[Rfam]
RNA sequence: GACAUGGGGAACGCGAUCUCCCCACGAGGCGACAGGCUGAAGAAUCGCGUCCUGCUUCUUGGAAGGACGCAUCAUG
Numbered sequence: 001g002a003c004a005u006g007g008g009g010a011a012c013g014c015g016a017u018c019u020c021c022c023c024a025c026g027a028g029g030c031g032a033c034a035g036g037c038u039g040a041a042g043a044a045u046c047g048c049g050u051c052c053u054g055c056u057u058c059u060u061g062g063a064a065g066g067a068c069g070c071a072u073c074a075u076g
Stems, first nucleotide, its partner, number of pairs: 005024006047070006
The family of this 76-nucleotide sequence from Sphingobium sp. SYK-6 is "chrB-a RNA".
Rfam 15.1 lists 347 matches to the family in 339 species.
By type it is a cis-regulatory element.